About this RNA:
A member of the RNA family "U11 spliceosomal RNA" from Medicago truncatula, 126 nucleotides long. By type it is a spliceosomal small nuclear RNA. The organism belongs to Medicago, within Eukaryota.
[Rfam]
RNA sequence: AAAAAGGGUCAGUUUGCUAAUUAUGCCACGCUCAUCAUUUUGAUGAAUGUUGUAUGGCUAUCAAGACAUACCGCUGACAUGAUCUUUGUGAAACAAUAGGAUUGGUUUGUUAAGCUGACCCUUUCA
Numbered sequence: 001a002a003a004a005a006g007g008g009u010c011a012g013u014u015u016g017c018u019a020a021u022u023a024u025g026c027c028a029c030g031c032u033c034a035u036c037a038u039u040u041u042g043a044u045g046a047a048u049g050u051u052g053u054a055u056g057g058c059u060a061u062c063a064a065g066a067c068a069u070a071c072c073g074c075u076g077a078c079a080u081g082a083u084c085u086u087u088g089u090g091a092a093a094c095a096a097u098a099g100g101a102u103u104g105g106u107u108u109g110u111u112a113a114g115c116u117g118a119c120c121c122u123u124u125c126a
Stems, first nucleotide, its partner, number of pairs: 008078005015028002018025002029049002032046005050073001052071005096124001098122003102118007